[Rfam]
RNA sequence: UGCAAGUGAUGUUUAUCUCACGAUGGUCUUCCAAGCCUUUGGCUCUGACGACACUGCCUCAUGGCAACACUGAUGCAGCCCA
Dot-bracket structure: ((((.....................................................................)))).....
This 82-nucleotide RNA sequence from Synaphobranchus kaupii belongs to the Rfam family "Small nucleolar RNA SNORD35". Rfam describes the family as follows. U35 is a C/D box snoRNA located in intron 6 of ribosomal protein L13A and intron 3 of ribosomal protein S11 in humans and at homologous positions in mouse and chicken ribosomal protein genes. U35 guides the methylation of 2'-O-ribose sites in 28S rRNA. Rfam links the family to the GO terms RNA processing and nucleolus. The organism belongs to Synaphobranchus, within Eukaryota. A reference for the family is Nicoloso et al. (1996), "Intron-encoded, antisense small nucleolar RNAs: the characterization of nine novel species points to their direct role as guides for the 2'-O-ribose methylation of rRNAs", J Mol Biol.